A member of the RNA family "U8 small nucleolar RNA" from Erinaceus europaeus, 135 nucleotides long.
The family's RNA type in Rfam is C/D-box small nucleolar RNA.
The organism belongs to Erinaceus, within Eukaryota.
It is one of the family's seed sequences.
RNA sequence: UCGUCAGUAAGGUUAAUCCUUACCUGUUCCUCCUCUGGAGGGCAGAUACGAACAUGAUGAUUGGAGUACACAUGAUUCGUGAUUAACGACUCUGUGUAGUCAGGGCUUGCAACACCCUGAUUGCUCCUAUCUGAU
Numbered sequence: 001u002c003g004u005c006a007g008u009a010a011g012g013u014u015a016a017u018c019c020u021u022a023c024c025u026g027u028u029c030c031u032c033c034u035c036u037g038g039a040g041g042g043c044a045g046a047u048a049c050g051a052a053c054a055u056g057a058u059g060a061u062u063g064g065a066g067u068a069c070a071c072a073u074g075a076u077u078c079g080u081g082a083u084u085a086a087c088g089a090c091u092c093u094g095u096g097u098a099g100u101c102a103g104g105g106c107u108u109g110c111a112a113c114a115c116c117c118u119g120a121u122u123g124c125u126c127c128u129a130u131c132u133g134a135u
Stems, first nucleotide, its partner, number of pairs: 024045003028042006074092002077089003080085001096124009